[Rfam]
Nucleotides: 127
Base pairs, nucleotide, nucleotide: 011026012025013024014023015022016021028060029059030058036053037052038051039049040048091114092113093112094111095110096109097108098107099106100105
Number, partner (000 for none) and nucleotide at each position: 001000u002000g003000a004000g005000a006000c007000a008000a009000g010000a011026a012025g013024a014023a015022g016021c017000a018000c019000c020000c021016g022015c023014u024013u025012c026011u027000c028060a029059c030058c031000u032000g033000a034000u035000c036053g037052a038051c039049g040048c041000u042000c043000a044000a045000u046000g047000a048040g049039c050000a051038g052037u053036u054000g055000g056000c057000a058030g059029g060028u061000u062000c063000a064000a065000u066000u067000u068000c069000c070000c071000u072000g073000c074000u075000u076000u077000u078000c079000a080000g081000u082000a083000g084000g085000g086000c087000u088000a089000c090000g091114u092113g093112u094111g095110g096109g097108u098107g099106c100105a101000g102000u103000u104000a105100u106099g107098u108097a109096c110095c111094c112093g113092c114091a115000c116000u117000u118000u119000u120000u121000u122000g123000u124000g125000u126000a127000a

The record is a 127-nucleotide RNA from Salimicrobium jeotgali, which matches "Ribosomal protein L20 leader" in Rfam. A search with the family's covariance model found it, with a score of 80 bits. The source organism's lineage runs through Bacteria, Bacillati, Bacillota, Caryophanales and Salimicrobium. From the family's description: This family is a putative r-protein leader autoregulatory structure found in B. subtilis and other low-GC Gram-positive bacteria. It is located in the 5' untranslated regions of mRNAs encoding initiation factor 3 followed by ribosomal proteins L35 and L20 (infC-rpmI-rplT). A Rho-independent transcription terminator structure that is probably involved in regulation is included at the 3' end. The literature on the family includes a 1994 paper in Prog Nucleic Acid Res Mol Biol by Zengel and Lindahl, "Diverse mechanisms for regulating ribosomal protein synthesis in Escherichia coli".